RNA sequence: AAGUGACUGAUCCGAAGAGCUGGCGUCCGGGGUGUGAGGCUGGCCGCGCAGGAUUCGUAGGCGCCCCCGUGUGUCCUUCUGGGUCCGCCCAUCGUG
Numbered sequence: 001a002a003g004u005g006a007c008u009g010a011u012c013c014g015a016a017g018a019g020c021u022g023g024c025g026u027c028c029g030g031g032g033u034g035u036g037a038g039g040c041u042g043g044c045c046g047c048g049c050a051g052g053a054u055u056c057g058u059a060g061g062c063g064c065c066c067c068c069g070u071g072u073g074u075c076c077u078u079c080u081g082g083g084u085c086c087g088c089c090c091a092u093c094g095u096g
Stems, first nucleotide, its partner, number of pairs: 003077001005075003020043004046064004081090003
The family of this 96-nucleotide RNA from Saccharomonospora sp. CUA-673 is "Mycobacterium sRNA ncrMT1302". Lineage of the source: Bacteria > Bacillati > Actinomycetota > Pseudonocardiaceae > Saccharomonospora. Rfam classes the family as a small RNA. For this family Rfam cites "A screen for non-coding RNA in Mycobacterium tuberculosis reveals a cAMP-responsive RNA that is expressed during infection" (Pelly et al., Gene, 2012).